RNA sequence: CGGACCAUAAGGCAGGCAUUGCCUGUCGAAAUCGUCUGUAAUCCGGGCAAUACCACGCCAGUGGCAUGACGACCACUCAAUCGCCGCAAUCUUGUUUGCGGUAUCAAU
Numbered sequence: 001c002g003g004a005c006c007a008u009a010a011g012g013c014a015g016g017c018a019u020u021g022c023c024u025g026u027c028g029a030a031a032u033c034g035u036c037u038g039u040a041a042u043c044c045g046g047g048c049a050a051u052a053c054c055a056c057g058c059c060a061g062u063g064g065c066a067u068g069a070c071g072a073c074c075a076c077u078c079a080a081u082c083g084c085c086g087c088a089a090u091c092u093u094g095u096u097u098g099c100g101g102u103a104u105c106a107a108u
Base pairs, nucleotide, nucleotide: 011027012026013025014024015023016022032072033071034070035069036068051066053064054063055062056061083102084101085100086099087098088097089096
Background: Shown here is a 108-nucleotide sequence, a member of the family "DUF3577 RNA". By type it is a cis-regulatory element.